RNA sequence: CUUGACCGAGCCGAGGAGGAGCGGCCGGUCCUCAGGCCGGUCCUGGCCGUACGUGGCCAGCAGCGCGUGCGCCUC
Numbered sequence: 001c002u003u004g005a006c007c008g009a010g011c012c013g014a015g016g017a018g019g020a021g022c023g024g025c026c027g028g029u030c031c032u033c034a035g036g037c038c039g040g041u042c043c044u045g046g047c048c049g050u051a052c053g054u055g056g057c058c059a060g061c062a063g064c065g066c067g068u069g070c071g072c073c074u075c
Base pairs, nucleotide, nucleotide: 015025031071033069038065039064043060044059045058047056048055049054
RNA: ASpks TB sRNA
Organism: Streptomyces sparsogenes